[Rfam]
RNA sequence: CUGGGCAAAAAAGCGCCUGACCCGGUACUUACUUAAGUGCUGGAUGACGAGGUGAGGGUUAAUCGAAUAAUCGGCGGGUGCCCUCCGGUGAACCACCAUCGUAAGUACAGUUACAAAACUGGUUAGCAAUAAUCAGUACAAAAGGCUGUGCAAGUGGGAAA
Dot-bracket structure: ...................(.(((((((........))))))).)........(((((....((((....))))......)))))(((((......)))))...(((((((.......(((((((....)))))))........)))))))..........
This 161-nucleotide RNA from Candidatus Syntrophocurvum alkaliphilum belongs to the Rfam family "glmS glucosamine-6-phosphate activated ribozyme aptamer". Gene Ontology terms of the family: catalytic activity and regulation of gene expression. Taxonomically the source falls in Candidatus Syntrophocurvum (Bacteria, Bacillati, Clostridia, Eubacteriales).